Rfam assigns this 62-nucleotide RNA from Sciurus vulgaris to the family "U7 small nuclear RNA". Rfam describes the family as follows. Animal histone pre-mRNAs are spliced by a different mechanism than nuclear pre-mRNAs and self-splicing introns. This processing involves the U7 snRNP, which contains only one RNA species: U7. The 5' end of U7 RNA is thought to base-pair to a conserved spacer element downstream of the cleavage site in histone pre-mRNA. This family contains a number of annotated U7 pseudogenes. The base pairs follow the family's consensus structure, which was predicted with PFOLD. The organism belongs to Sciurus, within Eukaryota.

RNA sequence: UAGUGUUGCAGCACUUUUAGAAUUGGUCUAGUAAGCUUUCUGAACUUUUGCUGGAAGCAACC
Number, nucleotide and partner (000 for none) at each position: 001u000002a000003g000004u000005g000006u000007u000008g000009c000010a000011g000012c000013a000014c000015u000016u000017u000018u000019a000020g000021a000022a000023u000024u000025g000026g000027u000028c000029u000030a000031g000032u000033a000034a000035g058036c057037u056038u055039u054040c053041u000042g051043a000044a049045c000046u000047u000048u000049u044050g000051c042052u000053g040054g039055a038056a037057g036058c035059a000060a000061c000062c000